tRNA: a 73-nucleotide sequence from Ekhidna lutea. Taxonomically the source falls in Ekhidna (Bacteria, Pseudomonadati, Bacteroidota, Cytophagales). It is annotated as a transfer RNA. Transfer RNA (tRNA) molecules are approximately 80 nucleotides in length.
[Rfam]
RNA sequence: GACUGGCUAGCUCAGCUGGUAGAGCAACGCCCUUUUAAGGCGUGGGUCCUGGGUUCGAGCCCCAGGCCAGUCA
Number, nucleotide and partner (000 for none) at each position: 001g072002a071003c070004u069005g068006g067007c066008u000009a000010g025011c024012u023013c022014a000015g000016c000017u000018g000019g000020u000021a000022g013023a012024g011025c010026a000027a043028c042029g041030c040031c039032c000033u000034u000035u000036u000037a000038a000039g031040g030041c029042g028043u027044g000045g000046g000047u000048c000049c065050u064051g063052g062053g061054u000055u000056c000057g000058a000059g000060c000061c053062c052063c051064a050065g049066g007067c006068c005069a004070g003071u002072c001073a000